[Rfam]
RNA sequence: ACUCAACGAAAUUUUUAAUAAAGGGUGAGUCCUUUUGGUAAAAGCAUGCUUUCUUGAAAAGACCCUUGAUCCAAAGGUUAGCCUAAAUCCUGUUUAUAUGGGAGUUU
Numbered sequence: 001a002c003u004c005a006a007c008g009a010a011a012u013u014u015u016u017a018a019u020a021a022a023g024g025g026u027g028a029g030u031c032c033u034u035u036u037g038g039u040a041a042a043a044g045c046a047u048g049c050u051u052u053c054u055u056g057a058a059a060a061g062a063c064c065c066u067u068g069a070u071c072c073a074a075a076g077g078u079u080a081g082c083c084u085a086a087a088u089c090c091u092g093u094u095u096a097u098a099u100g101g102g103a104g105u106u107u
Stems, first nucleotide, its partner, number of pairs: 023084004033076005042067003049061004
RNA: 6S-Flavo RNA